[Rfam]
Record summary: The family of this 75-nucleotide RNA sequence from Platysternon megacephalum is "mir-29 microRNA precursor family". The match comes from Rfam's covariance-model search (47 bits). This family represents the microRNA (miRNA) precursors mir-29.
RNA sequence: AUUGGACCAACUUCUGUUGGUGAAAGAGACGAGCUUUCGAAGUUUGUCUCUUUCACCAACAGAAGUUGGUCCAAU
Numbered sequence: 001a002u003u004g005g006a007c008c009a010a011c012u013u014c015u016g017u018u019g020g021u022g023a024a025a026g027a028g029a030c031g032a033g034c035u036u037u038c039g040a041a042g043u044u045u046g047u048c049u050c051u052u053u054c055a056c057c058a059a060c061a062g063a064a065g066u067u068g069g070u071c072c073a074a075u
Stems, first nucleotide, its partner, number of pairs: 001075004005070001007069009017059006026052004
The base pairs follow the family's consensus structure, which was predicted with PFOLD. On this family, see Ambros, Cell 2001: "microRNAs: tiny regulators with great potential".